[Rfam]
RNA: Streptococcus sRNA SpF59 (ldcC RNA)
Organism: Salirhabdus euzebyi
RNA sequence: UGACCACUCCCGAAAAAGAGUUUAAGGCCAUACGGACAGCCGGGUCAAACGCCGA
Numbered sequence: 001u002g003a004c005c006a007c008u009c010c011c012g013a014a015a016a017a018g019a020g021u022u023u024a025a026g027g028c029c030a031u032a033c034g035g036a037c038a039g040c041c042g043g044g045u046c047a048a049a050c051g052c053c054g055a
Stems, first nucleotide, its partner, number of pairs: 001047005006021004